The record is a 104-nucleotide sequence, which matches "6S-Flavo RNA" in Rfam.
Nucleotides: 104
Base pairs, nucleotide, nucleotide: 023082024081025080026079027078034073035072036071037070038069043064044063045062050058051057
Number, partner (000 for none) and nucleotide at each position: 001000a002000c003000u004000c005000a006000a007000c008000g009000c010000a011000a012000a013000u014000c015000u016000u017000u018000u019000a020000u021000a022000a023082a024081a025080g026079g027078u028000g029000a030000g031000u032000c033000a034073a035072u036071a037070u038069u039000g040000u041000u042000a043064a044063a045062g046000c047000g048000u049000g050058c051057c052000u053000u054000u055000a056000c057051g058050g059000a060000u061000a062045c063044u064043u065000g066000a067000u068000c069038a070037g071036u072035a073034u074000g075000u076000u077000a078027g079026c080025c081024u082023u083000a084000a085000u086000c087000u088000u089000g090000u091000a092000u093000u094000a095000a096000u097000a098000g099000g100000g101000g102000u103000u104000u
About this RNA: The sequence is in the family's curated seed alignment. It is annotated as a small RNA.